[Rfam]
RNA sequence: AUCAAAGAGGCAGGCGCUCGAACAUCUGCCCAUUUCGCGAGCAAGUCUUGGGAGGAUAAGAUCUUAGGCGCGGCUUCAUUGCUGCAGCCCCUACGGGAAGAGAUCACGCGACGCUUAUACAAAAGGCCUUCGGGCCUUUUUUUUUG
Numbered sequence: 001a002u003c004a005a006a007g008a009g010g011c012a013g014g015c016g017c018u019c020g021a022a023c024a025u026c027u028g029c030c031c032a033u034u035u036c037g038c039g040a041g042c043a044a045g046u047c048u049u050g051g052g053a054g055g056a057u058a059a060g061a062u063c064u065u066a067g068g069c070g071c072g073g074c075u076u077c078a079u080u081g082c083u084g085c086a087g088c089c090c091c092u093a094c095g096g097g098a099a100g101a102g103a104u105c106a107c108g109c110g111a112c113g114c115u116u117a118u119a120c121a122a123a124a125g126g127c128c129u130u131c132g133g134g135c136c137u138u139u140u141u142u143u144u145u146g
Base pairs, nucleotide, nucleotide: 003146004145005144006143011028012027013026014025016023036110037109038108039107045057046056047055048054060105061104062103063102064101068085069084070082071081072080088097089096090095122139123138124137125136126135127134128133
The family of this 146-nucleotide RNA sequence from Pararhizobium mangrovi is "Alphaproteobacterial sRNA ar9". Lineage of the source: Bacteria > Pseudomonadati > Alphaproteobacteria > Hyphomicrobiales > Pararhizobium. A reference for the family is del Val et al. (2012), "A survey of sRNA families in alpha-proteobacteria", RNA Biol. The base pairs follow the family's consensus structure. The match comes from Rfam's covariance-model search (82 bits).